[Rfam]
RNA sequence: AUGCCCGAUGAUUAUAACAAGACGCGUUAUUACGAGGACCAAUGCUGGAACUUCCAUUUCUCUCUUCCCUCACCUCUUGGUUCUUUUUCUCCAACACUCUUCUUACCUUUCUAUUUUCCUCUUUCUUCCUCCUACCUUACCUCUGCCUUUGGAAUAUCCAGUGUCCUGUGAGCAAGAUUAUGAGAUAUGAGGGCAG
Numbered sequence: 001a002u003g004c005c006c007g008a009u010g011a012u013u014a015u016a017a018c019a020a021g022a023c024g025c026g027u028u029a030u031u032a033c034g035a036g037g038a039c040c041a042a043u044g045c046u047g048g049a050a051c052u053u054c055c056a057u058u059u060c061u062c063u064c065u066u067c068c069c070u071c072a073c074c075u076c077u078u079g080g081u082u083c084u085u086u087u088u089c090u091c092c093a094a095c096a097c098u099c100u101u102c103u104u105a106c107c108u109u110u111c112u113a114u115u116u117u118c119c120u121c122u123u124u125c126u127u128c129c130u131c132c133u134a135c136c137u138u139a140c141c142u143c144u145g146c147c148u149u150u151g152g153a154a155u156a157u158c159c160a161g162u163g164u165c166c167u168g169u170g171a172g173c174a175a176g177a178u179u180a181u182g183a184g185a186u187a188u189g190a191g192g193g194c195a196g
Stems, first nucleotide, its partner, number of pairs: 002195005035084007
Rfam assigns this 196-nucleotide sequence from Pogona vitticeps to the family "Small nucleolar RNA SNORD97". Pairs were carried over by alignment from the consensus structure, which was predicted with WAR. Lineage of the source: Eukaryota > Vertebrata > Squamata > Unidentata > Pogona. Its family is annotated with nucleolus and RNA processing in the Gene Ontology.